[Rfam]
RNA sequence: GCAUGAGCGUAACGCGCAUUGAUAGUGGUGCCCUCAACAAGCGAUUGUUGAGUGAAAAUCGGGUGAACUCAGGGAACCUCCGCCAUAAAGGACAAUCCUGAGCCAAGCCGCUGACGCUUCAGCGGAAGGUGCAACGACUAGGUGGUUCAGACAGCGGUCUGUGUAAUACACCAUAAGCGCCCGACAACUCUAUGAGUUGAUGAUAUAGUCUGGCUCUCACAAAUGGUAAAUGUGAGA
Numbered sequence: 001g002c003a004u005g006a007g008c009g010u011a012a013c014g015c016g017c018a019u020u021g022a023u024a025g026u027g028g029u030g031c032c033c034u035c036a037a038c039a040a041g042c043g044a045u046u047g048u049u050g051a052g053u054g055a056a057a058a059u060c061g062g063g064u065g066a067a068c069u070c071a072g073g074g075a076a077c078c079u080c081c082g083c084c085a086u087a088a089a090g091g092a093c094a095a096u097c098c099u100g101a102g103c104c105a106a107g108c109c110g111c112u113g114a115c116g117c118u119u120c121a122g123c124g125g126a127a128g129g130u131g132c133a134a135c136g137a138c139u140a141g142g143u144g145g146u147u148c149a150g151a152c153a154g155c156g157g158u159c160u161g162u163g164u165a166a167u168a169c170a171c172c173a174u175a176a177g178c179g180c181c182c183g184a185c186a187a188c189u190c191u192a193u194g195a196g197u198u199g200a201u202g203a204u205a206u207a208g209u210c211u212g213g214c215u216c217u218c219a220c221a222a223a224u225g226g227u228a229a230a231u232g233u234g235a236g237a
Stems, first nucleotide, its partner, number of pairs: 005035003009031003013027003038047003059184004064179002069101006079092003102130002108124001113120002134211001136210005187197004216236005

Notes:
This 237-nucleotide RNA from Aokuangvirus SCBWM1 belongs to the Rfam family "Group I catalytic intron". A search with the family's covariance model found it, with a score of 81 bits. Rfam's curators write: Group I catalytic introns are large self-splicing ribozymes.